[Rfam]
RNA sequence: AAAAGGAGCAAUAUUGCCCUCUUGAUAAAACAAGAAGGUGGUAUUGCUCCCUUAUUU
Numbered sequence: 001a002a003a004a005g006g007a008g009c010a011a012u013a014u015u016g017c018c019c020u021c022u023u024g025a026u027a028a029a030a031c032a033a034g035a036a037g038g039u040g041g042u043a044u045u046g047c048u049c050c051c052u053u054a055u056u057u
Base pairs, nucleotide, nucleotide: 002053003052005050006049007048008047009046010045011044012043013042014041020035021034022033023032024031
RNA: Plastid-psbA-3 3UTR RNA